[Rfam]
RNA sequence: ACCUUUCGCUCAACAACGACCUGUGUCUGCGUUCCCGUCCGCCCUUCUGGGCGUGUUCUGGUUGAACGCCGGCAGUUCGUCCGUCCCCAUGGUGCCAUCUUCCGUCAUAGGUGUCAAUCCGGACGACAGGUCGGAGAGAAAGUCGGGCGUUGCUCUGAAGCCUGAGUUCGCCGCAAGGUUUGAGCUCGGUGGAUGGCGCGUGCCAGGCAGACUGAUUCCUGUUCCCUUUUGCUAGGCCGUUGGCUCAUGAUGCUUGGGACAAACCCAGUCGGCUACAUAC
Numbered sequence: 001a002c003c004u005u006u007c008g009c010u011c012a013a014c015a016a017c018g019a020c021c022u023g024u025g026u027c028u029g030c031g032u033u034c035c036c037g038u039c040c041g042c043c044c045u046u047c048u049g050g051g052c053g054u055g056u057u058c059u060g061g062u063u064g065a066a067c068g069c070c071g072g073c074a075g076u077u078c079g080u081c082c083g084u085c086c087c088c089a090u091g092g093u094g095c096c097a098u099c100u101u102c103c104g105u106c107a108u109a110g111g112u113g114u115c116a117a118u119c120c121g122g123a124c125g126a127c128a129g130g131u132c133g134g135a136g137a138g139a140a141a142g143u144c145g146g147g148c149g150u151u152g153c154u155c156u157g158a159a160g161c162c163u164g165a166g167u168u169c170g171c172c173g174c175a176a177g178g179u180u181u182g183a184g185c186u187c188g189g190u191g192g193a194u195g196g197c198g199c200g201u202g203c204c205a206g207g208c209a210g211a212c213u214g215a216u217u218c219c220u221g222u223u224c225c226c227u228u229u230u231g232c233u234a235g236g237c238c239g240u241u242g243g244c245u246c247a248u249g250a251u252g253c254u255u256g257g258g259a260c261a262a263a264c265c266c267a268g269u270c271g272g273c274u275a276c277a278u279a280c
Base pairs, nucleotide, nucleotide: 017133018132019131020130021129022128023127024126025073026072027071029069031067032066033065034064035061036060037058039055041052042051043050044049082125083124084123085122086121090116091115092114094112095111096110144202148198149197160190161189162188164187165186166185167184168183169182171178172177207273208272210270211269212268213267214266223259224258225257226256231253232252235245236244237243238242
The record is a 280-nucleotide RNA sequence from Ampelomyces quisqualis, which matches "A. fumigatus sRNA Afu_309" in Rfam. By type it is a small RNA. Taxonomically the source falls in Ampelomyces (Eukaryota, Dikarya, Ascomycota, dothideomyceta).